A member of the RNA family "Potassium channel RNA editing signal" from Frankliniella occidentalis, 114 nucleotides long. It scores 107 bits against the family's covariance model. The base pairs follow the family's consensus structure, which is taken from published work. Rfam describes the family as follows. This family represents a group of sequences related to the human potassium channel Kv1.1 hairpin element which directs the efficient modification of an adenosine to inosine by an adenosine deaminase acting on RNA (ADAR). The ADAR modification causes an isoleucine/valine recoding event which lies in the ion-conducting pore of the potassium channel. It is thought that this editing event targets the process of fast inactivation and allows a more rapid recovery from inactivation at negative potentials. The organism belongs to Frankliniella, within Eukaryota. Rfam classes the family as a cis-regulatory element.
RNA sequence: GUGGGCUACGGCGACAUGGCCCCCAAGACGUACGUCGGCAUGUUCGUGGGCGCGCUGUGCGCCCUGGCCGGGGUGCUGACCAUCGCCCUGCCCGUCCCCGUCAUCGUCUCCAAC
Number, nucleotide and partner (000 for none) at each position: 001g114002u113003g000004g111005g110006c000007u000008a107009c106010g105011g104012c000013g102014a101015c100016a000017u000018g097019g096020c000021c094022c000023c000024c000025a000026a000027g000028a000029c000030g000031u000032a000033c000034g000035u000036c000037g077038g076039c075040a074041u000042g000043u000044u000045c000046g000047u000048g000049g063050g062051c061052g000053c000054g000055c000056u000057g000058u000059g000060c000061g051062c050063c049064c000065u000066g000067g000068c000069c000070g000071g000072g000073g000074u040075g039076c038077u037078g000079a000080c000081c000082a000083u000084c000085g000086c000087c000088c000089u000090g000091c000092c000093c000094g021095u000096c019097c018098c000099c000100g015101u014102c013103a000104u011105c010106g009107u008108c000109u000110c005111c004112a000113a002114c001